[Rfam]
Description
A member of the RNA family "S10-Clostridia ribosomal protein leader" from Ruminococcus sp. CAG:403, 79 nucleotides long. The literature on the family includes a 2020 paper in BMC Microbiol by Eckert and Weinberg, "Discovery of 20 novel ribosomal leader candidates in bacteria and archaea". The family's consensus secondary structure is taken from published work.

RNA sequence: UGAUAUGCGUUGAAGUGAAAGGUUGCUGACGGUUUGUCAGGUAAUUUUCAUGGAGUAUGUCCGAUUUAAAACCGGGCGA
Numbered sequence: 001u002g003a004u005a006u007g008c009g010u011u012g013a014a015g016u017g018a019a020a021g022g023u024u025g026c027u028g029a030c031g032g033u034u035u036g037u038c039a040g041g042u043a044a045u046u047u048u049c050a051u052g053g054a055g056u057a058u059g060u061c062c063g064a065u066u067u068a069a070a071a072c073c074g075g076g077c078g079a
Base pairs, nucleotide, nucleotide: 015051016050017049019048020047021046022045026040027039028038029037030036060079061078065076066075067074